[Rfam]
Shown here is a 115-nucleotide sequence from Prunus dulcis, a member of the family "Small nucleolar RNA Z278". Its family is annotated with nucleolus and RNA processing in the Gene Ontology. A search with the family's covariance model found it, with a score of 45 bits. The source organism's lineage runs through Eukaryota, Streptophyta, Spermatophyta, fabids and Prunus. Rfam's curators write: snoZ278 is a C/D box small nucleolar RNA. Its methylation guide targets have not been reported. The base pairs follow the family's consensus structure, which was predicted with PFOLD. Rfam classes the family as a C/D-box small nucleolar RNA.
RNA sequence: ACCUAGGAUGAUUGCAUCCGCUUGUUUGAGGUGUAGUGGAACUGAGACCCUGUUUUCAGGGAGAACCCCUCGGUGAAGCUACAUUUCAUAUGACAUCAAUGGAUUUAACUGAGGU
Numbered sequence: 001a002c003c004u005a006g007g008a009u010g011a012u013u014g015c016a017u018c019c020g021c022u023u024g025u026u027u028g029a030g031g032u033g034u035a036g037u038g039g040a041a042c043u044g045a046g047a048c049c050c051u052g053u054u055u056u057c058a059g060g061g062a063g064a065a066c067c068c069c070u071c072g073g074u075g076a077a078g079c080u081a082c083a084u085u086u087c088a089u090a091u092g093a094c095a096u097c098a099a100u101g102g103a104u105u106u107a108a109c110u111g112a113g114g115u
Stems, first nucleotide, its partner, number of pairs: 001115003048061005